The record is a 46-nucleotide RNA sequence from Bucco capensis, which matches "Histone 3' UTR stem-loop" in Rfam. Its family is annotated with mRNA 3'-end processing by stem-loop binding and cleavage in the Gene Ontology. Rfam's curators write: The mRNAs of metazoan histone genes lack a poly-A tail. 3' end processing occurs at a site between a highly conserved stem-loop (modelled by this family) and a purine rich region around 20 nts downstream (the histone downstream element, or HDE). Taxonomically the source falls in Bucco (Eukaryota, Tetrapoda, Theropoda, Coraciimorphae).
RNA sequence: CCAAAGGCUCUUUUAAGAGCCACCCAUGUAUUCCCUGAAAGAGCUU
Numbered sequence: 001c002c003a004a005a006g007g008c009u010c011u012u013u014u015a016a017g018a019g020c021c022a023c024c025c026a027u028g029u030a031u032u033c034c035c036u037g038a039a040a041g042a043g044c045u046u
Base pairs, nucleotide, nucleotide: 006021007020008019009018010017011016